[Rfam]
RNA sequence: GAGGCGUGGUGAUGAAAAAAGUUAAAUUCUUUCCGACUAAAUAUAUGAAUGGAUCAAAUAACCUCCUACUCAUUCUGA
Numbered sequence: 001g002a003g004g005c006g007u008g009g010u011g012a013u014g015a016a017a018a019a020a021g022u023u024a025a026a027u028u029c030u031u032u033c034c035g036a037c038u039a040a041a042u043a044u045a046u047g048a049a050u051g052g053a054u055c056a057a058a059u060a061a062c063c064u065c066c067u068a069c070u071c072a073u074u075c076u077g078a
Stems, first nucleotide, its partner, number of pairs: 006073004030053002034047001